[Rfam]
RNA: Small nucleolar RNA SNORD66
Organism: Sphaeramia orbicularis
RNA sequence: CUCUGAUGAUGAUUCAGAUUUUUGUGCCACGUGUCUGGGCCACUGAUUCUUAGUGAUGGGAUUGAGGACCUGAAGAG
Numbered sequence: 001c002u003c004u005g006a007u008g009a010u011g012a013u014u015c016a017g018a019u020u021u022u023u024g025u026g027c028c029a030c031g032u033g034u035c036u037g038g039g040c041c042a043c044u045g046a047u048u049c050u051u052a053g054u055g056a057u058g059g060g061a062u063u064g065a066g067g068a069c070c071u072g073a074a075g076a077g
Stems, first nucleotide, its partner, number of pairs: 001077004